[Rfam]
Rfam assigns this 155-nucleotide RNA sequence to the family "IMES-5 RNA".
RNA sequence: CAUUACUUCGGAAAGAACUAGAACUCGAGACCCCGGAUCUGGAAGAAAAUGGACAGAAGAAGAAGGGUGAAAGGCACAACGAAAGUUGACCAUCUGUGAGCUAGAAAGGGUAUUAGCCACACAGUGAGAAACCCACACUGACCCCUUCAACUUCG
Numbered sequence: 001c002a003u004u005a006c007u008u009c010g011g012a013a014a015g016a017a018c019u020a021g022a023a024c025u026c027g028a029g030a031c032c033c034c035g036g037a038u039c040u041g042g043a044a045g046a047a048a049a050u051g052g053a054c055a056g057a058a059g060a061a062g063a064a065g066g067g068u069g070a071a072a073g074g075c076a077c078a079a080c081g082a083a084a085g086u087u088g089a090c091c092a093u094c095u096g097u098g099a100g101c102u103a104g105a106a107a108g109g110g111u112a113u114u115a116g117c118c119a120c121a122c123a124g125u126g127a128g129a130a131a132c133c134c135a136c137a138c139u140g141a142c143c144c145c146u147u148c149a150a151c152u153u154c155g
Base pairs, nucleotide, nucleotide: 001051002050003049004048007047008046009045018035021032056154057153058152059151062148063147064146065145066144067143077088078087079086080085095121096120097119098118100117101116102115103114104113122140123139124138125137126136